Record summary
The record is a 139-nucleotide RNA sequence from Aquabacterium sp. NJ1, which matches "ZMP/ZTP riboswitch aptamer (pfl RNA motif)" in Rfam. The base pairs follow the family's consensus structure, which is taken from published work. Taxonomically the source falls in Aquabacterium (Bacteria, Pseudomonadota, Betaproteobacteria, Burkholderiales). The match comes from Rfam's covariance-model search (54 bits).
RNA sequence: UUUUCGCCGCGCAACUGGCGAUACAUGGCCGGGUGCUUUCGAGUGCCCGAGCCUGAGGUGGUGAACCACCGGGAAGCGCGGCCAGCCCAAGCGGCUUUUUGAGCCCGGGCUGUGUCAGCCGUUCGCCUGGGCAGCCCUC
Numbered sequence: 001u002u003u004u005c006g007c008c009g010c011g012c013a014a015c016u017g018g019c020g021a022u023a024c025a026u027g028g029c030c031g032g033g034u035g036c037u038u039u040c041g042a043g044u045g046c047c048c049g050a051g052c053c054u055g056a057g058g059u060g061g062u063g064a065a066c067c068a069c070c071g072g073g074a075a076g077c078g079c080g081g082c083c084a085g086c087c088c089a090a091g092c093g094g095c096u097u098u099u100u101g102a103g104c105c106c107g108g109g110c111u112g113u114g115u116c117a118g119c120c121g122u123u124c125g126c127c128u129g130g131g132c133a134g135c136c137c138u139c
Stems, first nucleotide, its partner, number of pairs: 003085002006082007015073002017127005058069004116134001118132003